[Rfam]
RNA sequence: CUUUUCGAGGAGCGUUGCGACAGCUAUCCCAGCGGAUAUCUGCCAGGCUCGAAGAGAGGCUUCAUUAACAACGGCGCUCGGUUAAA
Numbered sequence: 001c002u003u004u005u006c007g008a009g010g011a012g013c014g015u016u017g018c019g020a021c022a023g024c025u026a027u028c029c030c031a032g033c034g035g036a037u038a039u040c041u042g043c044c045a046g047g048c049u050c051g052a053a054g055a056g057a058g059g060c061u062u063c064a065u066u067a068a069c070a071a072c073g074g075c076g077c078u079c080g081g082u083u084a085a086a
Stems, first nucleotide, its partner, number of pairs: 002055007021042003025038004
RNA: SAH (S-adenosyl-L-homocysteine) riboswitch aptamer
Organism: Tenderia electrophaga